[Rfam]
RNA sequence: CUGUUCUCAACGGGGUGCUUCUUCGGAGGCUGAGAGAAACUCGUAGAACCUGAUCUGAUUAAUUACAGCGUAGGGAUUUGAGAAAGGUUAAAUA
Numbered sequence: 001c002u003g004u005u006c007u008c009a010a011c012g013g014g015g016u017g018c019u020u021c022u023u024c025g026g027a028g029g030c031u032g033a034g035a036g037a038a039a040c041u042c043g044u045a046g047a048a049c050c051u052g053a054u055c056u057g058a059u060u061a062a063u064u065a066c067a068g069c070g071u072a073g074g075g076a077u078u079u080g081a082g083a084a085a086g087g088u089u090a091a092a093u094a
Base pairs, nucleotide, nucleotide: 006082007081008080009079010078011043012042013041014040016037017030018029019028020027021026049074050073051072052071055068056067057066

Record summary:
Shown here is a 94-nucleotide RNA from [Mannheimia] succiniciproducens, a member of the family "TPP riboswitch aptamer (THI element)". Lineage of the source: Bacteria > Gammaproteobacteria > Pasteurellales > Basfia > [Mannheimia] succiniciproducens.